[Rfam]
RNA sequence: CGGAUGGUAUUCGACAGAAACUAUACCGAAGGAAAAUGACUAUAUAAAAAACUGAUGCGACGGUAGCUCAUAUCUUAGGAAUGAGACUAACUA
Numbered sequence: 001c002g003g004a005u006g007g008u009a010u011u012c013g014a015c016a017g018a019a020a021c022u023a024u025a026c027c028g029a030a031g032g033a034a035a036a037u038g039a040c041u042a043u044a045u046a047a048a049a050a051a052c053u054g055a056u057g058c059g060a061c062g063g064u065a066g067c068u069c070a071u072a073u074c075u076u077a078g079g080a081a082u083g084a085g086a087c088u089a090a091c092u093a
Stems, first nucleotide, its partner, number of pairs: 001028003004024005010019002064089003067085005073080002
Dot-bracket structure: ((((((((.((......))))))).)))...................................((((((((.((....))))))).)))....